Description: Rfam assigns this 120-nucleotide RNA from Streptomyces alboniger to the family "Streptomyces-metH RNA".

[Rfam]
RNA sequence: CCCGUCCGCCCCGUGGACGACUUCCCAACGGGACCUUGGUCCCGGCUACCCUGACCGAGUGCGCCCUCCAACAGAAGGCGCAAAGCCGACAGCCGUCGCACUCCAGGGAGCUCAUUCAUG
Numbered sequence: 001c002c003c004g005u006c007c008g009c010c011c012c013g014u015g016g017a018c019g020a021c022u023u024c025c026c027a028a029c030g031g032g033a034c035c036u037u038g039g040u041c042c043c044g045g046c047u048a049c050c051c052u053g054a055c056c057g058a059g060u061g062c063g064c065c066c067u068c069c070a071a072c073a074g075a076a077g078g079c080g081c082a083a084a085g086c087c088g089a090c091a092g093c094c095g096u097c098g099c100a101c102u103c104c105a106g107g108g109a110g111c112u113c114a115u116u117c118a119u120g
Base pairs, nucleotide, nucleotide: 060082061081062080063079065077067075068074085099086098088097089096090095
Dot-bracket structure: ...........................................................((((.(.((.....)).).))))..((.(((....))))).....................
A search with the family's covariance model found it, with a score of 106 bits. By type it is a small RNA.